The record is a 177-nucleotide RNA sequence from Rhodococcus sp. ABRD24, which matches "M-box riboswitch aptamer (ykoK leader)" in Rfam. Gene Ontology terms of the family: response to magnesium ion and regulation of gene expression. Lineage of the source: Bacteria > Bacillati > Mycobacteriales > Nocardiaceae > Rhodococcus.
[Rfam]
RNA sequence: AAGGCACCUUGUUCGGUGAGGCUCCUUCGCGGAUACAGGCCAGCGACCCCGAACGUCGAGAGACGCCCCGGGUCAGGACAGGCAUCCCCGACUUAAGGGGUUGCCCCGAUUGGCUCCCGACUCCUGUGUCGGGUUCACGCCGCGAAGUGCCAAAGCUCUGACGAGUUGGGGUGAACC
Number, nucleotide and partner (000 for none) at each position: 001a000002a000003g000004g000005c173006a172007c171008c170009u169010u168011g162012u161013u096014c000015g157016g156017u155018g000019a000020g151021g150022c149023u000024c000025c147026u146027u145028c144029g143030c142031g141032g140033a000034u000035a000036c000037a000038g000039g114040c113041c112042a111043g110044c000045g074046a073047c072048c071049c070050c000051g000052a000053a000054c065055g064056u063057c062058g000059a000060g000061a000062g057063a056064c055065g054066c000067c000068c000069c000070g049071g048072g047073u046074c045075a000076g000077g000078a000079c000080a000081g105082g104083c103084a102085u000086c000087c099088c098089c097090g000091a000092c000093u000094u000095a000096a013097g089098g088099g087100g000101u000102u084103g083104c082105c081106c000107c000108g000109a000110u043111u042112g041113g040114c039115u000116c133117c132118c131119g130120a129121c000122u000123c000124c000125u000126g000127u000128g000129u120130c119131g118132g117133g116134u000135u000136c000137a000138c000139g000140c032141c031142g030143c029144g028145a027146a026147g025148u000149g022150c021151c020152a000153a000154a000155g017156c016157u015158c000159u000160g000161a012162c011163g000164a000165g000166u000167u000168g010169g009170g008171g007172u006173g005174a000175a000176c000177c000

Rfam's curators write: M-box riboswitch, also know as ykoK leader is described as a metaloregulatory RNA that sense divalent metals and function as a genetic control element of genes related to divalent metal transport in bacteria. It was first reported upstream of the B.subtilis ykoK gene and genes with related functions in other bacteria.